[Rfam]
RNA: Alphaproteobacteria transfer-messenger RNA
Organism: Caulobacter sp. 17J65-9
RNA sequence: GGUCUUCCGCUUCGCCGAUCGCGUCCCUAUAUUCGACCUGUCCGGUUUCGACCGGACUAUGGGGAUAAACGCGCGCGAAAUAAGCGGACCGGACCCGGGUGCGAUUCCCGGCGGCUCCACCAUUACCUUCCUCCGCGUUAUCGGCGGGAAAGCAUGGGGCCGAUCAGCAUCGACGGACGUGUAAAGGCGUUGCUUUCUCUCGGCCUGACCCACCGUUUCGGGUCAUUUACUAACUGCGAACGAUAACUUCGCUGAAGAGUUCGCUGUCGCUGCGUAAUGCGGCGCCGGUGAGUUCGACCUAAAGCCCUGGGGGUUCAGAUCCUCAGGCGGGGCUCGGGGGAGGCCUGGCAACAGAACUCCCCCACU
Number, nucleotide and partner (000 for none) at each position: 001g000002g000003u000004c000005u000006u000007c000008c000009g000010c000011u000012u000013c000014g000015c000016c000017g000018a000019u000020c000021g000022c000023g000024u000025c000026c000027c000028u000029a000030u000031a000032u000033u000034c000035g000036a000037c000038c000039u000040g057041u056042c055043c054044g053045g052046u051047u000048u000049c000050g000051a046052c045053c044054g043055g042056a041057c040058u000059a000060u000061g200062g199063g198064g197065a196066u000067a000068a000069a000070c000071g193072c192073g190074c189075g188076c187077g000078a000079a000080a000081u000082a000083a000084g000085c179086g178087g000088a000089c176090c175091g174092g000093a000094c000095c111096c110097g109098g108099g107100u000101g000102c000103g000104a000105u000106u000107c099108c098109c097110g096111g095112c162113g161114g160115c159116u158117c157118c156119a000120c000121c000122a000123u000124u000125a000126c000127c000128u000129u000130c000131c000132u000133c000134c000135g000136c000137g000138u000139u000140a000141u000142c000143g000144g000145c000146g000147g000148g000149a000150a000151a000152g000153c000154a000155u000156g118157g117158g116159g115160c114161c113162g112163a000164u000165c000166a000167g000168c000169a000170u000171c000172g000173a000174c091175g090176g089177a000178c086179g085180u000181g000182u000183a000184a000185a000186g000187g076188c075189g074190u073191u000192g072193c071194u000195u000196u065197c064198u063199c062200u061201c215202g214203g213204c000205c000206u225207g224208a223209c222210c221211c220212a000213c203214c202215g201216u000217u000218u000219c000220g211221g210222g209223u208224c207225a206226u000227u000228u000229a000230c000231u000232a000233a000234c000235u000236g000237c000238g000239a000240a000241c000242g000243a000244u000245a000246a000247c000248u000249u000250c000251g000252c000253u000254g000255a000256a000257g000258a000259g000260u000261u000262c000263g000264c000265u000266g000267u000268c000269g000270c000271u000272g000273c000274g000275u000276a000277a000278u000279g000280c000281g000282g000283c000284g000285c000286c000287g000288g000289u000290g000291a000292g000293u000294u000295c000296g000297a000298c000299c000300u000301a000302a000303a000304g000305c000306c000307c000308u000309g000310g000311g000312g000313g000314u000315u000316c000317a000318g000319a000320u000321c000322c000323u000324c000325a000326g000327g000328c000329g000330g346331g345332g344333c343334u000335c000336g363337g362338g361339g360340g359341a358342g000343g333344c332345c331346u330347g000348g000349c000350a000351a000352c000353a000354g000355a000356a000357c000358u341359c340360c339361c338362c337363c336364a000365c000366u000